[Rfam]
RNA: Selenocysteine insertion sequence 1
RNA sequence: UAUAUGUUAUGAUGGUAUAAUACUAAACCCUAACGGGAAGUAUUGUGCCUGAUAUUCAUAUG
Numbered sequence: 001u002a003u004a005u006g007u008u009a010u011g012a013u014g015g016u017a018u019a020a021u022a023c024u025a026a027a028c029c030c031u032a033a034c035g036g037g038a039a040g041u042a043u044u045g046u047g048c049c050u051g052a053u054a055u056u057c058a059u060a061u062g
Stems, first nucleotide, its partner, number of pairs: 001060003014049010029037003